Rfam assigns this 162-nucleotide RNA from Microbacterium sp. RU33B to the family "FMN riboswitch aptamer (RFN element)". Taxonomically the source falls in Microbacterium (Bacteria, Actinomycetota, Actinomycetes, Microbacteriaceae). Pairs were carried over by alignment from the consensus structure, which is taken from published work.
RNA sequence: UACGUGCUCCGGGGUCGGUGAGAAUCCGAACCGGCGGUGAUAGUCCGCGAGCCGCAGCAGGUCAUCACUUCGAUAUCCUGCCCAGGCUGAUCCGGUGCGAUUCCGGGACCGACGGUGAUGCGAUGGCGACGCCAUCGCUAGUCCGGAUGGGAGGCGCACGAC
Numbered sequence: 001u002a003c004g005u006g007c008u009c010c011g012g013g014g015u016c017g018g019u020g021a022g023a024a025u026c027c028g029a030a031c032c033g034g035c036g037g038u039g040a041u042a043g044u045c046c047g048c049g050a051g052c053c054g055c056a057g058c059a060g061g062u063c064a065u066c067a068c069u070u071c072g073a074u075a076u077c078c079u080g081c082c083c084a085g086g087c088u089g090a091u092c093c094g095g096u097g098c099g100a101u102u103c104c105g106g107g108a109c110c111g112a113c114g115g116u117g118a119u120g121c122g123a124u125g126g127c128g129a130c131g132c133c134a135u136c137g138c139u140a141g142u143c144c145g146g147a148u149g150g151g152a153g154g155c156g157c158a159c160g161a162c
Stems, first nucleotide, its partner, number of pairs: 003160005009154002016028003032111002034048004043109002051087003091107005113145003